[Rfam]
Overview
This 332-nucleotide RNA sequence from Methylomusa anaerophila belongs to the Rfam family "Bacterial RNase P class B". Rfam classes the family as a ribozyme. From the family's description: Ribonuclease P (RNase P) is a ubiquitous endoribonuclease, found in archaea, bacteria and eukarya as well as chloroplasts and mitochondria. Its best characterised activity is the generation of mature 5'-ends of tRNAs by cleaving the 5'-leader elements of precursor-tRNAs. Cellular RNase Ps are ribonucleoproteins. The family is grouped with related families in Rfam's "RNaseP clan". A reference for the family is Frank and Pace (1998), "Ribonuclease P: unity and diversity in a tRNA processing ribozyme", Annu Rev Biochem. It scores 216 bits against the family's covariance model. Lineage of the source: Bacteria > Bacillati > Selenomonadales > Sporomusaceae > Methylomusa.

RNA sequence: AAAAACGGGAAUUUGCGGUACCGUUUGAUUUCGGUACUGAGGAAAGUCCAGACUGCCACAGCCUGAGAUGGCUGUAAUGUUUGUGCCCAUCGCAAGAUGGGGCGGAACAAAAGUUCUGACGACGGCCAAAUCGACUCACGCAGUCGAAAGUAACCAUAAAGUGCACAGAGAAUGAGUAGGCUGGCGACAGCCUAGUGAAAAGUGGUAAACUCCGCAAGGCAGAAACCCAAAUUAUGGUAGGGGAACUUCCUAUAGGGAAUAAUGAACCGAAGGGAAGAACGUAUUUACACGUUAGACAAAUGAAUUCCUAAAACAGAAACUGGCUUACGGUU
Numbered sequence: 001a002a003a004a005a006c007g008g009g010a011a012u013u014u015g016c017g018g019u020a021c022c023g024u025u026u027g028a029u030u031u032c033g034g035u036a037c038u039g040a041g042g043a044a045a046g047u048c049c050a051g052a053c054u055g056c057c058a059c060a061g062c063c064u065g066a067g068a069u070g071g072c073u074g075u076a077a078u079g080u081u082u083g084u085g086c087c088c089a090u091c092g093c094a095a096g097a098u099g100g101g102g103c104g105g106a107a108c109a110a111a112a113g114u115u116c117u118g119a120c121g122a123c124g125g126c127c128a129a130a131u132c133g134a135c136u137c138a139c140g141c142a143g144u145c146g147a148a149a150g151u152a153a154c155c156a157u158a159a160a161g162u163g164c165a166c167a168g169a170g171a172a173u174g175a176g177u178a179g180g181c182u183g184g185c186g187a188c189a190g191c192c193u194a195g196u197g198a199a200a201a202g203u204g205g206u207a208a209a210c211u212c213c214g215c216a217a218g219g220c221a222g223a224a225a226c227c228c229a230a231a232u233u234a235u236g237g238u239a240g241g242g243g244a245a246c247u248u249c250c251u252a253u254a255g256g257g258a259a260u261a262a263u264g265a266a267c268c269g270a271a272g273g274g275a276a277g278a279a280c281g282u283a284u285u286u287a288c289a290c291g292u293u294a295g296a297c298a299a300a301u302g303a304a305u306u307c308c309u310a311a312a313a314c315a316g317a318a319a320c321u322g323g324c325u326u327a328c329g330g331u332u
Base pairs, nucleotide, nucleotide: 004332005331006330007328008308009307010306011305012304013303014302016039017038018037019036020035021034022033023032044326045325046324048323049322050321051320053222054221055220056219057218058075059074060073061072062071063070081217082216083215084214085213086101087100088099089098090097091096102120103118104117105116106115107114108113121212122211124155125154132146133145134144135143161210162209163206164205177194178193179192180191181190182189183188226242227241228240246277247276248275249274250273251272278293279292280291281290282289